Shown here is a 64-nucleotide RNA sequence from Monodelphis domestica, a member of the family "mir-8/mir-141/mir-200 microRNA precursor family". Clan: mir-8 microRNA precursor clan. The base pairs follow the family's consensus structure, which was predicted with RNAalifold. The organism belongs to Monodelphis, within Eukaryota.
RNA sequence: CCAUCUUACUGGGCAGCAUUGGAUGGUGUCUGUGUUUCUAAUACUGCCUGGUAAUGAUGAUGAU
Numbered sequence: 001c002c003a004u005c006u007u008a009c010u011g012g013g014c015a016g017c018a019u020u021g022g023a024u025g026g027u028g029u030c031u032g033u034g035u036u037u038c039u040a041a042u043a044c045u046g047c048c049u050g051g052u053a054a055u056g057a058u059g060a061u062g063a064u
Base pairs, nucleotide, nucleotide: 002059003058004057005056006054007053008052009051010050011049012048013047014046015045016044018042019041020040021039022038023037